[Rfam]
RNA sequence: UUUCUGCCAAUUAAACUGUGUUCUGUUCCCCAUGGGGGCCUGGUGUGUAAUGGCUGCAGAGGGCAGCCUUCCGGGUAGUGUAUGCCACCUGUUAUCUGCACAGGUUGCCCUGAGGGAACUUGGAGACAGCC
Numbered sequence: 001u002u003u004c005u006g007c008c009a010a011u012u013a014a015a016c017u018g019u020g021u022u023c024u025g026u027u028c029c030c031c032a033u034g035g036g037g038g039c040c041u042g043g044u045g046u047g048u049a050a051u052g053g054c055u056g057c058a059g060a061g062g063g064c065a066g067c068c069u070u071c072c073g074g075g076u077a078g079u080g081u082a083u084g085c086c087a088c089c090u091g092u093u094a095u096c097u098g099c100a101c102a103g104g105u106u107g108c109c110c111u112g113a114g115g116g117a118a119c120u121u122g123g124a125g126a127c128a129g130c131c
Stems, first nucleotide, its partner, number of pairs: 002049001004047001015044004021038004074119001076117001085107001087105004